[Rfam]
RNA sequence: AAAACGGCCCUUUUAAGGGCCACCAAUUUUUAUCAAAGCGACUAGU
Numbered sequence: 001a002a003a004a005c006g007g008c009c010c011u012u013u014u015a016a017g018g019g020c021c022a023c024c025a026a027u028u029u030u031u032a033u034c035a036a037a038g039c040g041a042c043u044a045g046u
Stems, first nucleotide, its partner, number of pairs: 006021006
Histone 3' UTR stem-loop: a 46-nucleotide RNA from Dimorphilus gyrociliatus. The family's consensus secondary structure is taken from published work. Taxonomically the source falls in Dimorphilus (Eukaryota, Protostomia, Annelida, Dinophilidae). The match comes from Rfam's covariance-model search (39 bits). By type it is a cis-regulatory element.